[Rfam]
RNA sequence: GUAUGUUAAUCUGGAAAAUAAAAUGCUAUUGUCUAAAGCCACAUAAAACAAUUCAUAUGCAUUAAAAAAAGGGGGGAAGCAUAC
Number, nucleotide and partner (000 for none) at each position: 001g084002u083003a082004u081005g080006u079007u000008a000009a000010u074011c073012u072013g000014g000015a000016a000017a000018a000019u000020a000021a000022a063023a062024u061025g060026c059027u000028a000029u000030u000031g000032u055033c000034u000035a000036a000037a000038g000039c000040c000041a000042c000043a000044u000045a000046a000047a000048a000049c000050a000051a000052u000053u000054c000055a032056u000057a000058u000059g026060c025061a024062u023063u022064a000065a000066a000067a000068a000069a000070a000071g000072g012073g011074g010075g000076g000077a000078a000079g006080c005081a004082u003083a002084c001
RNA: GAIT element
Organism: Eurystomus gularis